[Rfam]
RNA sequence: AAAAGUUUGGGGCCAAAGCAGAAAUGUUUAUGGCAUGAUUGUGCCAGAUUCCAAGAAAUCUGUGAAUUCUGCU
Numbered sequence: 001a002a003a004a005g006u007u008u009g010g011g012g013c014c015a016a017a018g019c020a021g022a023a024a025u026g027u028u029u030a031u032g033g034c035a036u037g038a039u040u041g042u043g044c045c046a047g048a049u050u051c052c053a054a055g056a057a058a059u060c061u062g063u064g065a066a067u068u069c070u071g072c073u
Stems, first nucleotide, its partner, number of pairs: 011040002014037001017073007024036003045062006